msiK RNA: a 61-nucleotide RNA sequence from Microbacterium mangrovi. The family's consensus secondary structure is taken from published work. The match comes from Rfam's covariance-model search (63 bits).
[Rfam]
RNA sequence: CCCGCUCAUUCCUCACUACGGAUCGUCCGGCACGUACCUGCCGGUGAAGGAGAAGAGAAAA
Numbered sequence: 001c002c003c004g005c006u007c008a009u010u011c012c013u014c015a016c017u018a019c020g021g022a023u024c025g026u027c028c029g030g031c032a033c034g035u036a037c038c039u040g041c042c043g044g045u046g047a048a049g050g051a052g053a054a055g056a057g058a059a060a061a
Stems, first nucleotide, its partner, number of pairs: 009051003013047003027044006